[Rfam]
RNA: Purine riboswitch aptamer
RNA sequence: GCGAAAAAAAUCAUACUUUCUCGUAUAACCCCGUAAUCGGCCAAUGCCGACAGGGCGGGGGUUUCUACAGGGAGCCUUUACUUCCUAACUACGAUGACAAGGAAUUCAGAA
Dot-bracket structure: .................((.(((((...(((((......................))))).........(((((.......)))))...))))).))..............